[Rfam]
A member of the RNA family "Small nucleolar RNA snR191" from Candidozyma pseudohaemuli, 259 nucleotides long.
RNA sequence: UCCCAAAGACCUUUGUCAGGGUGAAUGUGCCGACUUGUUCGACCACUCACACAUUUGCCUGUUACGUCCUUGGAAGAUCAAUGCUACCCGCCCGCAGACCCUUGUUUCAAGGUACUGUGGCCGUUUUGGCCAUGGUUUCGUCUGCACUGCUGAUAGUUUUUAUCGGCGCCAUAGGGUAGAUUUCGGAAUCUUCUGAGUUGGACCUGCUUGGAGCUCUGGCUCCCACAUAAGCUUGUCCGUAGUAUAGAAUCCGACACUC
Numbered sequence: 001u002c003c004c005a006a007a008g009a010c011c012u013u014u015g016u017c018a019g020g021g022u023g024a025a026u027g028u029g030c031c032g033a034c035u036u037g038u039u040c041g042a043c044c045a046c047u048c049a050c051a052c053a054u055u056u057g058c059c060u061g062u063u064a065c066g067u068c069c070u071u072g073g074a075a076g077a078u079c080a081a082u083g084c085u086a087c088c089c090g091c092c093c094g095c096a097g098a099c100c101c102u103u104g105u106u107u108c109a110a111g112g113u114a115c116u117g118u119g120g121c122c123g124u125u126u127u128g129g130c131c132a133u134g135g136u137u138u139c140g141u142c143u144g145c146a147c148u149g150c151u152g153a154u155a156g157u158u159u160u161u162a163u164c165g166g167c168g169c170c171a172u173a174g175g176g177u178a179g180a181u182u183u184c185g186g187a188a189u190c191u192u193c194u195g196a197g198u199u200g201g202a203c204c205u206g207c208u209u210g211g212a213g214c215u216c217u218g219g220c221u222c223c224c225a226c227a228u229a230a231g232c233u234u235g236u237c238c239g240u241a242g243u244a245u246a247g248a249a250u251c252c253g254a255c256a257c258u259c
Stems, first nucleotide, its partner, number of pairs: 003073004019060010030041001032039002084179006094145006101135001149167008184253004189248003199239005206232004211222004
About this RNA:
The family's RNA type in Rfam is H/ACA-box small nucleolar RNA. Gene Ontology terms of the family: nucleolus and RNA processing. The base pairs follow the family's consensus structure, which was predicted with WAR.